Shown here is a 61-nucleotide sequence from Cellulomonas flavigena, a member of the family "Actino-pnp RNA". The base pairs follow the family's consensus structure, which is taken from published work.
[Rfam]
RNA sequence: UCCGGUCCUCGGUAGUGGUCCCCGGAGUUCGACGCUCCGAGGGCCACGGUCGAAGACCGUC
Numbered sequence: 001u002c003c004g005g006u007c008c009u010c011g012g013u014a015g016u017g018g019u020c021c022c023c024g025g026a027g028u029u030c031g032a033c034g035c036u037c038c039g040a041g042g043g044c045c046a047c048g049g050u051c052g053a054a055g056a057c058c059g060u061c
Base pairs, nucleotide, nucleotide: 003059004058005057006056007055009053010052011051012050013049017045018044019043020042021041023039024038025037026036027035028034